This 116-nucleotide RNA sequence from Mikania micrantha belongs to the Rfam family "Small nucleolar RNA snoR99". Rfam links the family to the GO terms RNA processing and nucleolus. It is annotated as an H/ACA-box small nucleolar RNA. The family's consensus secondary structure was predicted with WAR. Rfam 15.1 lists 733 matches to the family in 222 species.
RNA sequence: UUGCUUCAGGGAUUGAACGUAAUCCCCUGAGAUUCAAUCCACCUUAUCACUUUGUCAGCAAAUUCAUUAGUUUCGGCUAAUUUACAACUUGCUGAUCAUUAACGGGUGGUAGAUCU
Numbered sequence: 001u002u003g004c005u006u007c008a009g010g011g012a013u014u015g016a017a018c019g020u021a022a023u024c025c026c027c028u029g030a031g032a033u034u035c036a037a038u039c040c041a042c043c044u045u046a047u048c049a050c051u052u053u054g055u056c057a058g059c060a061a062a063u064u065c066a067u068u069a070g071u072u073u074c075g076g077c078u079a080a081u082u083u084a085c086a087a088c089u090u091g092c093u094g095a096u097c098a099u100u101a102a103c104g105g106g107u108g109g110u111a112g113a114u115c116u
Stems, first nucleotide, its partner, number of pairs: 039109005054096008